[Rfam]
RNA sequence: AGCCAGUGAUGAGCUACUUUAUUUCUGACACCUCGUCUGAAAACUGUACCUGCAGUAUUUGAUGACGUUUUUUGGCUGAGGCUC
Numbered sequence: 001a002g003c004c005a006g007u008g009a010u011g012a013g014c015u016a017c018u019u020u021a022u023u024u025c026u027g028a029c030a031c032c033u034c035g036u037c038u039g040a041a042a043a044c045u046g047u048a049c050c051u052g053c054a055g056u057a058u059u060u061g062a063u064g065a066c067g068u069u070u071u072u073u074g075g076c077u078g079a080g081g082c083u084c
Base pairs, nucleotide, nucleotide: 001083002082003081004080043056044055045054046053047052
RNA: Small nucleolar RNA SNORD60